Record summary
This 44-nucleotide sequence from Priestia taiwanensis belongs to the Rfam family "PreQ1 (pre queuosine) riboswitch aptamer". The family has 43 seed sequences and 873 matches in Rfam 15.1. Rfam describes the family as follows. This family is a bacterial riboswitch that binds to the metabolite preQ1, an intermediate in the biosynthesis of the modified nucleoside queuosine from GTP. One example of this riboswitch is located in the leader of the Bacillus subtilis ykvJKLM (queCDEF) operon which encodes four genes necessary for queuosine production. PreQ1 binding to the riboswitch aptamer is thought to induce premature transcription termination within the leader to down-regulate expression of these genes. It scores 48 bits against the family's covariance model.
RNA sequence: AUAGGCGAGGUUCGUAAUCUCCCUCGAUAAAAAACUAACGCGAA
Dot-bracket structure: .....(((((....[[.....))))).........]].......